Notes
A member of the RNA family "Bacterial large signal recognition particle RNA" from Bacillus cereus, 260 nucleotides long. Lineage of the source: Bacteria > Bacillati > Bacillota > Bacillaceae > Bacillus. The family's RNA type in Rfam is non-coding RNA gene. Rfam links the family to the GO terms SRP-dependent cotranslational protein targeting to membrane, signal sequence recognition and signal recognition particle, plasma membrane targeting.

Nucleotides: 260
Stems, first nucleotide, its partner, number of pairs: 001260006010056002013031004018026001020024001035054002038052002063253002066250003072244005080237008092226002096223006104216002106213003115207008124196002127194002129189002132187005138179004147172004155164003
Number, partner (000 for none) and nucleotide at each position: 001260c002259c003258g004257u005256g006255c007000u008000a009000a010056g011055c012000g013031g014030g015029g016028g017000a018026g019000g020024u021000a022000g023000c024020g025000g026018u027000g028016c029015c030014c031013u032000a033000u034000a035054c036053u037000c038052g039051c040000a041000a042000u043000c044000c045000g046000c047000u048000c049000u050000a051039g052038c053036a054035g055011g056010c057000c058000g059000a060000a061000u062000c063253c064252c065000c066250u067249c068248u069000c070000g071000a072244g073243g074242u075241u076240a077000u078000g079000u080237u081236g082235c083234u084233g085232u086231a087230a088000g089000g090000u091000c092226u093225g094000c095000c096223u097222u098221a099220a100219g101218u102000a103000a104216g105215u106213g107212g108211u109000g110000u111000u112000g113000a114000c115207g116206u117205u118204u119203g120202g121201g122200u123000c124196c125195u126000g127194c128193g129189c130188a131000a132187c133186g134185g135184g136183a137000c138179c139178c140177g141176u142000g143000a144000a145000c146000c147172u148171u149170g150169u151000c152000a153000g154000g155164u156163c157162c158000g159000g160000a161000a162157g163156g164155a165000a166000g167000c168000a169150g170149c171148a172147a173000u174000a175000a176141g177140c178139g179138g180000u181000c182000u183136u184135c185134u186133c187132g188130u189129g190000u191000g192000c193128c194127g195125a196124g197000a198000g199000u200122g201121c202120c203119u204118g205117a206116a207115c208000c209000g210000a211108g212107c213106u214000a215105a216104c217000u218101g219100c220099u221098u222097g223096a224000g225093u226092a227000a228000c229000g230087u231086u232085a233084u234083g235082g236081u237080a238000c239000g240076u241075a242074a243073u244072c245000g246000a247000c248068a249067g250066a251000a252064g253063g254000u255006g256005c257004a258003c259002g260001g
The base pairs follow the family's consensus structure, which is taken from published work.